[Rfam]
RNA: Small nucleolar RNA R38
Organism: Monilinia vaccinii-corymbosi
RNA sequence: UUUGUGUAAUGAUGAAAAAAAAGUCAUACAGUUAUCCCUGUCUUAAUCAUUCCAUGUUGAUCUUUAUUAAUUAGACUCUGAACACUGU
Numbered sequence: 001u002u003u004g005u006g007u008a009a010u011g012a013u014g015a016a017a018a019a020a021a022a023g024u025c026a027u028a029c030a031g032u033u034a035u036c037c038c039u040g041u042c043u044u045a046a047u048c049a050u051u052c053c054a055u056g057u058u059g060a061u062c063u064u065u066a067u068u069a070a071u072u073a074g075a076c077u078c079u080g081a082a083c084a085c086u087g088u
Stems, first nucleotide, its partner, number of pairs: 002087001004085004